[Rfam]
RNA sequence: UAAAAUAAUGAUGCUGUUUUUGAGACAGCAGGUGCUGGGGUCCAGCGUAAGGCUAUGCCGCCUGCCGAGAAACGUACGUAAAGUUGCUUUAUGCCUCUUUCUCGGACUGUGUGCGGGAAAGAGGCUUUUUUCGUUGCUCA
Numbered sequence: 001u002a003a004a005a006u007a008a009u010g011a012u013g014c015u016g017u018u019u020u021u022g023a024g025a026c027a028g029c030a031g032g033u034g035c036u037g038g039g040g041u042c043c044a045g046c047g048u049a050a051g052g053c054u055a056u057g058c059c060g061c062c063u064g065c066c067g068a069g070a071a072a073c074g075u076a077c078g079u080a081a082a083g084u085u086g087c088u089u090u091a092u093g094c095c096u097c098u099u100u101c102u103c104g105g106a107c108u109g110u111g112u113g114c115g116g117g118a119a120a121g122a123g124g125c126u127u128u129u130u131u132c133g134u135u136g137c138u139c140a
Base pairs, nucleotide, nucleotide: 028065029064030063031062032061033060034046035045036044093125094124095123096122097121098120099119100118101117102116103115104114